This 60-nucleotide sequence from Brachypteracias leptosomus belongs to the Rfam family "Small nucleolar RNA SNORD75".
RNA sequence: AGCCAGUGAUGGUGAAGAGUAGUGGACAGAAGUGAUUUCUGAAAACUCUGUGCUGAGGCU
Numbered sequence: 001a002g003c004c005a006g007u008g009a010u011g012g013u014g015a016a017g018a019g020u021a022g023u024g025g026a027c028a029g030a031a032g033u034g035a036u037u038u039c040u041g042a043a044a045a046c047u048c049u050g051u052g053c054u055g056a057g058g059c060u
Stems, first nucleotide, its partner, number of pairs: 001060004

The family has 5 seed sequences and 767 matches in Rfam 15.1. A reference for the family is Galardi et al. (2002), "Purified box C/D snoRNPs are able to reproduce site-specific 2'-O-methylation of target RNA in vitro", Mol Cell Biol. It scores 62 bits against the family's covariance model. Its family is annotated with nucleolus and RNA processing in the Gene Ontology.